[Rfam]
RNA sequence: GAGUGAAAUGAUUGCAUACCAUCUUUCGGGACUGACUUGAGAGAGAUUUUUAAUGUUUUUUUUUUUUUUUCCAAACAAAAUCAUCACUC
Numbered sequence: 001g002a003g004u005g006a007a008a009u010g011a012u013u014g015c016a017u018a019c020c021a022u023c024u025u026u027c028g029g030g031a032c033u034g035a036c037u038u039g040a041g042a043g044a045g046a047u048u049u050u051u052a053a054u055g056u057u058u059u060u061u062u063u064u065u066u067u068u069u070u071c072c073a074a075a076c077a078a079a080a081u082c083a084u085c086a087c088u089c
Stems, first nucleotide, its partner, number of pairs: 001089006
The record is an 89-nucleotide RNA from Denticeps clupeoides, which matches "Small nucleolar RNA SNORD2" in Rfam. Pairs were carried over by alignment from the consensus structure, which was predicted with WAR.